[Rfam]
RNA: Small nucleolar RNA Z161/Z228
Organism: Spinacia oleracea
RNA sequence: AUAUCAAGUGAUGAUUUGGAUUAGUCAUCUCACGACGGUCGUCUGAUGGAACUUAAUUGUUCUUCUUCUGAUGUAUACAACAAUCCAUUUUUCUGAUGAAU
Numbered sequence: 001a002u003a004u005c006a007a008g009u010g011a012u013g014a015u016u017u018g019g020a021u022u023a024g025u026c027a028u029c030u031c032a033c034g035a036c037g038g039u040c041g042u043c044u045g046a047u048g049g050a051a052c053u054u055a056a057u058u059g060u061u062c063u064u065c066u067u068c069u070g071a072u073g074u075a076u077a078c079a080a081c082a083a084u085c086c087a088u089u090u091u092u093c094u095g096a097u098g099a100a101u
Stems, first nucleotide, its partner, number of pairs: 001101002004098001049065003